RNA sequence: GGUCCUCACUAAGGCAGCUCUGUUGAGAGUUGCCAUGGUGGGGGGGGUUGACCCUGCGGGGGUCCCCAGGCCGUCAACUUCCGGUGCCAGACGUUGGUACGUCAGGGUCGAGCACAAUGCGCUGCCGCCCGCUGCCGAUAUUCUGGGGACGA
Numbered sequence: 001g002g003u004c005c006u007c008a009c010u011a012a013g014g015c016a017g018c019u020c021u022g023u024u025g026a027g028a029g030u031u032g033c034c035a036u037g038g039u040g041g042g043g044g045g046g047g048u049u050g051a052c053c054c055u056g057c058g059g060g061g062g063u064c065c066c067c068a069g070g071c072c073g074u075c076a077a078c079u080u081c082c083g084g085u086g087c088c089a090g091a092c093g094u095u096g097g098u099a100c101g102u103c104a105g106g107g108u109c110g111a112g113c114a115c116a117a118u119g120c121g122c123u124g125c126c127g128c129c130c131g132c133u134g135c136c137g138a139u140a141u142u143c144u145g146g147g148g149a150c151g152a
Base pairs, nucleotide, nucleotide: 002150003149004148005147006146007145008144014033015032017031019028020027021026046067047066050064051063052062053061054060094138095137096136097135098134099133105130106129107128108127112125113124114123

This 152-nucleotide sequence belongs to the Rfam family "cold-seep-1 RNA". It is one of the family's seed sequences.